[Rfam]
RNA sequence: GGAGGUUGGUGGUGGACGUACCACUCGCCAAUCGGGUCAGGUCCGGAAGGAAGCAGCCCCAACGAGCCAGGCACGGGUCGCGUGCCAGCCUCCUAC
Numbered sequence: 001g002g003a004g005g006u007u008g009g010u011g012g013u014g015g016a017c018g019u020a021c022c023a024c025u026c027g028c029c030a031a032u033c034g035g036g037u038c039a040g041g042u043c044c045g046g047a048a049g050g051a052a053g054c055a056g057c058c059c060c061a062a063c064g065a066g067c068c069a070g071g072c073a074c075g076g077g078u079c080g081c082g083u084g085c086c087a088g089c090c091u092c093c094u095a096c
Stems, first nucleotide, its partner, number of pairs: 004090005009083002012081003017075003021071002024066004034059004042051003
A member of the RNA family "Bacterial small signal recognition particle RNA" from Kaistia soli, 96 nucleotides long.
Rfam classes the family as a non-coding RNA gene.
The family is grouped with related families in Rfam's "SRP clan".
The organism belongs to Kaistia soli, within Bacteria.